A member of the RNA family "Enterococcus sRNA A9" from Pisciglobus halotolerans, 67 nucleotides long. NCBI's taxonomy places the organism under Bacteria, Bacillati, Bacillota, Bacilli, Pisciglobus. A search with the family's covariance model found it, with a score of 52 bits.
[Rfam]
RNA sequence: GCGAAGUGAUAAGAUUUGUGUUGCACAACAACACAAAAGCCCAACCUACUGCGAAUAGGAUGGGCUU
Numbered sequence: 001g002c003g004a005a006g007u008g009a010u011a012a013g014a015u016u017u018g019u020g021u022u023g024c025a026c027a028a029c030a031a032c033a034c035a036a037a038a039g040c041c042c043a044a045c046c047u048a049c050u051g052c053g054a055a056u057a058g059g060a061u062g063g064g065c066u067u
Base pairs, nucleotide, nucleotide: 006024007023008022009021010020011019037067038066039065040064041063042062043061045059046058047057048056